A member of the RNA family "DUF3800-VI RNA", 53 nucleotides long. The base pairs follow the family's consensus structure, which is taken from published work. By type it is a cis-regulatory element.
RNA sequence: GGGUCAGGAGGGCUACAUUAGUGGUCCGCUGGGGCUCCUUACCCACCUGGCUA
Numbered sequence: 001g002g003g004u005c006a007g008g009a010g011g012g013c014u015a016c017a018u019u020a021g022u023g024g025u026c027c028g029c030u031g032g033g034g035c036u037c038c039u040u041a042c043c044c045a046c047c048u049g050g051c052u053a
Stems, first nucleotide, its partner, number of pairs: 002052007010027007030045004
Dot-bracket structure: .(((((((.(((((((....)))))))..((((........))))))))))).